[Rfam]
RNA sequence: GUAUAUGAAGGGCAAACUGUUUGAAAGGACAGGACGCAAAGUCACAGGUCUAAGGUUGAAAAACUAUGAUGGCUGGAUUUCCUGG
Numbered sequence: 001g002u003a004u005a006u007g008a009a010g011g012g013c014a015a016a017c018u019g020u021u022u023g024a025a026a027g028g029a030c031a032g033g034a035c036g037c038a039a040a041g042u043c044a045c046a047g048g049u050c051u052a053a054g055g056u057u058g059a060a061a062a063a064c065u066a067u068g069a070u071g072g073c074u075g076g077a078u079u080u081c082c083u084g085g
Stems, first nucleotide, its partner, number of pairs: 012037002017032006040079004045075003048070003055064003
The record is an 85-nucleotide sequence from Litchfieldia salsa, which matches "c-di-GMP-I riboswitch aptamer" in Rfam. Pairs were carried over by alignment from the consensus structure, which is taken from published work.